[Rfam]
Aggregatibacter sRNA 54: a 121-nucleotide RNA sequence from Actinobacillus succinogenes. For this family Rfam cites "Small RNA repertoires and their intraspecies variation in Aggregatibacter actinomycetemcomitans" (Oogai et al., DNA Res, 2017). The family's consensus secondary structure was predicted with RNAfold. It is one of the family's seed sequences.
RNA sequence: GCGUAUUAUGCGCUCGAUUUUUCUACUAGAGGACACACACUUUGGACAGUCACAGUCGAUACCGACUUAAAUUUUUCAUGUAAGCUGUCGCCCGUCUUUCGACUUAUCGGCGACAAGUUCG
Numbered sequence: 001g002c003g004u005a006u007u008a009u010g011c012g013c014u015c016g017a018u019u020u021u022u023c024u025a026c027u028a029g030a031g032g033a034c035a036c037a038c039a040c041u042u043u044g045g046a047c048a049g050u051c052a053c054a055g056u057c058g059a060u061a062c063c064g065a066c067u068u069a070a071a072u073u074u075u076u077c078a079u080g081u082a083a084g085c086u087g088u089c090g091c092c093c094g095u096c097u098u099u100c101g102a103c104u105u106a107u108c109g110g111c112g113a114c115a116a117g118u119u120c121g
Stems, first nucleotide, its partner, number of pairs: 001013005025081002029076005042065004049060003083118001086115007